Overview:
The record is a 57-nucleotide RNA sequence from Gossypium gossypioides, which matches "Plastid-rps18 3UTR RNA" in Rfam. NCBI's taxonomy places the organism under Eukaryota, Streptophyta, Euphyllophyta, Mesangiospermae, Gossypium. Rfam's curators write: Plastid rps18 is a non-coding RNA (ncRNA) present in plastids. It was identified as a short stem-loop motif in the 3 prime untranslate region (3UTR) of rps18 gene. By type it is a cis-regulatory element.

RNA sequence: UGCAAGUAUUUUGCGAUUCAGAAACAACUGUUUCUUGUACAGAUUGUGUAUUAAUUU
Numbered sequence: 001u002g003c004a005a006g007u008a009u010u011u012u013g014c015g016a017u018u019c020a021g022a023a024a025c026a027a028c029u030g031u032u033u034c035u036u037g038u039a040c041a042g043a044u045u046g047u048g049u050a051u052u053a054a055u056u057u
Stems, first nucleotide, its partner, number of pairs: 018037001020035006